[Rfam]
RNA sequence: AGCAAAAUGAUGAGGUUUAAAGAUCUGAAUAUCAUGUGGAUUACUUAUUGAAAUGGUCUUCAAAGUUCUCUGAUUGCU
Dot-bracket structure: (((((....................................................................)))))
Numbered sequence: 001a002g003c004a005a006a007a008u009g010a011u012g013a014g015g016u017u018u019a020a021a022g023a024u025c026u027g028a029a030u031a032u033c034a035u036g037u038g039g040a041u042u043a044c045u046u047a048u049u050g051a052a053a054u055g056g057u058c059u060u061c062a063a064a065g066u067u068c069u070c071u072g073a074u075u076g077c078u
Stems, first nucleotide, its partner, number of pairs: 001078005